A member of the RNA family "Gammaprotebacteria rimP leader" from Mesocricetibacter intestinalis, 102 nucleotides long. On this family, see Naville and Gautheret, Genome Biol 2010: "Premature terminator analysis sheds light on a hidden world of bacterial transcriptional attenuation". It scores 49 bits against the family's covariance model. The organism belongs to Mesocricetibacter, within Bacteria. Rfam classes the family as a cis-regulatory leader.

RNA sequence: UUUUGACAGAUUUAAAUAUAAGUUCAGUGAAGAACCCCAGAUUUUAGGGGUUUUUUUAUACAAAAAAAUCGAAUGUAGAACUGGGCUUUUAGCCCUUUUUUU
Numbered sequence: 001u002u003u004u005g006a007c008a009g010a011u012u013u014a015a016a017u018a019u020a021a022g023u024u025c026a027g028u029g030a031a032g033a034a035c036c037c038c039a040g041a042u043u044u045u046a047g048g049g050g051u052u053u054u055u056u057u058a059u060a061c062a063a064a065a066a067a068a069u070c071g072a073a074u075g076u077a078g079a080a081c082u083g084g085g086c087u088u089u090u091a092g093c094c095c096u097u098u099u100u101u102u
Stems, first nucleotide, its partner, number of pairs: 031054008083095004